A member of the RNA family "Archaeal RNase P" from Methanospirillum hungatei, 299 nucleotides long. The base pairs follow the family's consensus structure, which is taken from published work. Ribonuclease P (RNase P) is a ubiquitous endoribonuclease, found in archaea, bacteria and eukarya as well as chloroplasts and mitochondria. Its best characterised activity is the generation of mature 5'-ends of tRNAs by cleaving the 5'-leader elements of precursor-tRNAs.

[Rfam]
RNA sequence: GAGAGGGAGAGUGCGGCCGACGGUAACGAUUUUUCGUAGCUGAGGAAAGUCCCCCCACCAACCGGGUACGCAGCCUUGCUUGUCAGGGGUGGUGAGAAUCACGGCUAUGGACCAGAAACGAUACGGAAUGUCCUGAGUUAUGAUGCAUUCCUGCUGAGCGAAGACGGACAUCACCGAUGAAACGGCGAAUCCCUGCGGGUGCAAACCGAAACAGGGCAUACAGAUAACCCGGUAUCUGCCCGGGUUCGGUGCUAAGCUGAAUGCCGCAAUGAACAGAAGGGGGCUUACUCCUCCCACUC
Numbered sequence: 001g002a003g004a005g006g007g008a009g010a011g012u013g014c015g016g017c018c019g020a021c022g023g024u025a026a027c028g029a030u031u032u033u034u035c036g037u038a039g040c041u042g043a044g045g046a047a048a049g050u051c052c053c054c055c056c057a058c059c060a061a062c063c064g065g066g067u068a069c070g071c072a073g074c075c076u077u078g079c080u081u082g083u084c085a086g087g088g089g090u091g092g093u094g095a096g097a098a099u100c101a102c103g104g105c106u107a108u109g110g111a112c113c114a115g116a117a118a119c120g121a122u123a124c125g126g127a128a129u130g131u132c133c134u135g136a137g138u139u140a141u142g143a144u145g146c147a148u149u150c151c152u153g154c155u156g157a158g159c160g161a162a163g164a165c166g167g168a169c170a171u172c173a174c175c176g177a178u179g180a181a182a183c184g185g186c187g188a189a190u191c192c193c194u195g196c197g198g199g200u201g202c203a204a205a206c207c208g209a210a211a212c213a214g215g216g217c218a219u220a221c222a223g224a225u226a227a228c229c230c231g232g233u234a235u236c237u238g239c240c241c242g243g244g245u246u247c248g249g250u251g252c253u254a255a256g257c258u259g260a261a262u263g264c265c266g267c268a269a270u271g272a273a274c275a276g277a278a279g280g281g282g283g284c285u286u287a288c289u290c291c292u293c294c295c296a297c298u299c
Stems, first nucleotide, its partner, number of pairs: 001299003005295005010289002012268006021042004047286003051283005056201004061233006069197005074088005089102005103192002108188001110186001124176003128171006145154002205250004214241005